[Rfam]
RNA sequence: UAGUGGGCUGAAAAGUGCCCACCGCGGUAAUUUCCCGUUCGCCGCGAAGUCUGAGGCAGGCGGGCAGGGGUAACCCGAAACGCCAAGCUGCCUGACAAAGGUCCGCAAGGAUCGAGACGGAAGGCGGGCCGUAACGCAA
Numbered sequence: 001u002a003g004u005g006g007g008c009u010g011a012a013a014a015g016u017g018c019c020c021a022c023c024g025c026g027g028u029a030a031u032u033u034c035c036c037g038u039u040c041g042c043c044g045c046g047a048a049g050u051c052u053g054a055g056g057c058a059g060g061c062g063g064g065c066a067g068g069g070g071u072a073a074c075c076c077g078a079a080a081c082g083c084c085a086a087g088c089u090g091c092c093u094g095a096c097a098a099a100g101g102u103c104c105g106c107a108a109g110g111a112u113c114g115a116g117a118c119g120g121a122a123g124g125c126g127g128g129c130c131g132u133a134a135c136g137c138a139a
Base pairs, nucleotide, nucleotide: 023046024045025044026043027042054093055092056091057090058089059084060083061082062081068075069074100113101112102111103110117132118131119130
Overview: Rfam assigns this 139-nucleotide RNA sequence from Thermacetogenium phaeum to the family "Group II catalytic intron D1-D4-4". Rfam links the family to the GO term Group II intron splicing. The pairing is the family consensus, mapped onto this sequence. Group II introns are found in rRNA, tRNA and mRNA of organelles in fungi, plants and protists, and also in mRNA in bacteria. Lineage of the source: Bacteria > Bacillati > Bacillota > Thermoanaerobacterales > Thermacetogenium phaeum.